[Rfam]
RNA: DUF3800-IX RNA
RNA sequence: GCCUUCGCGGCCCGAAUCGUCGCCGUAUGGCGGCUUGUCUGGCGCAUCGUCAGUCUAGGGCGCGAGGGCGUAA
Numbered sequence: 001g002c003c004u005u006c007g008c009g010g011c012c013c014g015a016a017u018c019g020u021c022g023c024c025g026u027a028u029g030g031c032g033g034c035u036u037g038u039c040u041g042g043c044g045c046a047u048c049g050u051c052a053g054u055c056u057a058g059g060g061c062g063c064g065a066g067g068g069c070g071u072a073a
Stems, first nucleotide, its partner, number of pairs: 001069007009061001011060003019034006037055001039053003